The family of this 111-nucleotide RNA sequence from Arabidopsis thaliana is "Small Cajal body specific RNA ncR21".
Its family is annotated with nucleolus, RNA processing and Cajal body in the Gene Ontology.
For this family Rfam cites "Promoter-based identification of novel non-coding RNAs reveals the presence of dicistronic snoRNA-miRNA genes in Arabidopsis thaliana" (Qu et al., BMC Genomics, 2015).
Rfam 15.1 lists 2 matches to the family in 2 species.
Rfam's curators put it in the seed alignment.
Taxonomically the source falls in Arabidopsis (Eukaryota, eudicotyledons, malvids, Brassicaceae).
RNA sequence: UUAUCUAUUAUAUUCUCAUGACAUUUUGAUCCACUUGUGAUCAGCACAAGAUCAGUAUAAAGUUGAAGUUGAUCAAUUUGUGGAGCAUGGAUCCUGAAUAUACCGACGAUU
Numbered sequence: 001u002u003a004u005c006u007a008u009u010a011u012a013u014u015c016u017c018a019u020g021a022c023a024u025u026u027u028g029a030u031c032c033a034c035u036u037g038u039g040a041u042c043a044g045c046a047c048a049a050g051a052u053c054a055g056u057a058u059a060a061a062g063u064u065g066a067a068g069u070u071g072a073u074c075a076a077u078u079u080g081u082g083g084a085g086c087a088u089g090g091a092u093c094c095u096g097a098a099u100a101u102a103c104c105g106a107c108g109a110u111u
Base pairs, nucleotide, nucleotide: 009102010101011100012099013098014097015096022089023088024087030084031083032082033081034080038075039074040073041072042071043070044069045068047065048064049063